RNA sequence: AGUAAAUUUUCAGAGAAGGAACUUUGAGAAGAUACAAUAAAUCAAGAUUAAGUGGUAGAAAUCAAUGAACUAUUUCUUU
Numbered sequence: 001a002g003u004a005a006a007u008u009u010u011c012a013g014a015g016a017a018g019g020a021a022c023u024u025u026g027a028g029a030a031g032a033u034a035c036a037a038u039a040a041a042u043c044a045a046g047a048u049u050a051a052g053u054g055g056u057a058g059a060a061a062u063c064a065a066u067g068a069a070c071u072a073u074u075u076c077u078u079u
Base pairs, nucleotide, nucleotide: 007030008029009028010027011026012025013024014023015022064075065074
Plastid-rpl20 3UTR RNA: a 79-nucleotide RNA from Dichanthelium oligosanthes. The organism belongs to Dichanthelium, within Eukaryota. Rfam's curators write: Plastid rpl20 is a non-coding RNA (ncRNA) recognised in plastids. It was found in the three prime untranslated region (3UTR) of rpl20 gene, it presence in the 3UTR region sugest a role in transcript maduration. It scores 65 bits against the family's covariance model.